[Rfam]
Shown here is a 56-nucleotide sequence, a member of the family "Glutamine-II riboswitch aptamer". Gene Ontology term of the family: glutamine binding.
RNA sequence: UAACGUUCACCCCGCAAGGGGACGCAUGUUACUAGCUCAUGGAACGGGGAGCUAGA
Numbered sequence: 001u002a003a004c005g006u007u008c009a010c011c012c013c014g015c016a017a018g019g020g021g022a023c024g025c026a027u028g029u030u031a032c033u034a035g036c037u038c039a040u041g042g043a044a045c046g047g048g049g050a051g052c053u054a055g056a
Stems, first nucleotide, its partner, number of pairs: 004046005011021003032055005037049002